The family of this 206-nucleotide RNA from Tripterygium wilfordii is "U2 spliceosomal RNA". The organism belongs to Tripterygium, within Eukaryota. The family's RNA type in Rfam is spliceosomal small nuclear RNA.

RNA sequence: AUACCUUUCUCGGCCUUUUGGCUAAGAUCAAGUGUGCCAGUGUGGUAUAUGUUCUUAUCAGUUUAAUAUCUGAUACAUGGGCUAUUGGUUCACAUGAUAUUAAAUUAAUUUUUUAAGGGGGAAGGCCCACCAUAGUAGCUGGCUACUAGGGUCUUCGCUUGUAGCCCAAGCGUUACACUACUACAGCUCGGGCUGGCGCACCCCUA
Number, nucleotide and partner (000 for none) at each position: 001a000002u000003a000004c000005c000006u000007u000008u027009c026010u025011c000012g023013g022014c021015c020016u000017u000018u000019u000020g015021g014022c013023u012024a000025a010026g009027a008028u000029c000030a000031a000032g000033u000034g000035u000036g000037c000038c000039a000040g000041u000042g000043u000044g000045g000046u000047a000048u000049a000050u000051g000052u000053u000054c000055u000056u075057a074058u073059c072060a071061g070062u000063u000064u000065a000066a000067u000068a000069u000070c061071u060072g059073a058074u057075a056076c000077a000078u092079g091080g090081g089082c088083u087084a000085u000086u000087g083088g082089u081090u080091c079092a078093c000094a000095u000096g000097a000098u000099a000100u000101u000102a000103a000104a000105u000106u000107a000108a000109u000110u000111u000112u000113u000114u000115a000116a000117g000118g000119g000120g000121g156122a155123a154124g153125g152126c151127c150128c149129a000130c000131c000132a000133u000134a000135g146136u145137a144138g143139c000140u000141g000142g000143c138144u137145a136146c135147u000148a000149g128150g127151g126152u125153c124154u123155u122156c121157g000158c000159u000160u198161g197162u196163a000164g194165c000166c191167c190168a000169a188170g187171c186172g000173u000174u000175a000176c000177a000178c000179u000180a000181c000182u000183a000184c000185a000186g171187c170188u169189c000190g167191g166192g000193c000194u164195g000196g162197c161198g160199c000200a000201c000202c000203c000204c000205u000206a000